[Rfam]
RNA sequence: AGCUCUGAACAGUGACAGUAUCGUAGCCAAUGAGGUUUAUCUGAGGUGUGAUUAUUGCUAACUGAAUAAAUAAUCAAAUCACUGUGCUUUUAAGUUUCUUCAGUUGUAAAAUGGGAAUGAUGUCCAUAGUAACAGCUC
Numbered sequence: 001a002g003c004u005c006u007g008a009a010c011a012g013u014g015a016c017a018g019u020a021u022c023g024u025a026g027c028c029a030a031u032g033a034g035g036u037u038u039a040u041c042u043g044a045g046g047u048g049u050g051a052u053u054a055u056u057g058c059u060a061a062c063u064g065a066a067u068a069a070a071u072a073a074u075c076a077a078a079u080c081a082c083u084g085u086g087c088u089u090u091u092a093a094g095u096u097u098c099u100u101c102a103g104u105u106g107u108a109a110a111a112u113g114g115g116a117a118u119g120a121u122g123u124c125c126a127u128a129g130u131a132a133c134a135g136c137u138c
Stems, first nucleotide, its partner, number of pairs: 020052005026047003034042002085115001087113001088111005094105001096103002
The record is a 138-nucleotide RNA from Erinaceus europaeus, which matches "U4 spliceosomal RNA" in Rfam.
The organism belongs to Erinaceus, within Eukaryota.
It scores 51 bits against the family's covariance model.
The family's RNA type in Rfam is spliceosomal small nuclear RNA.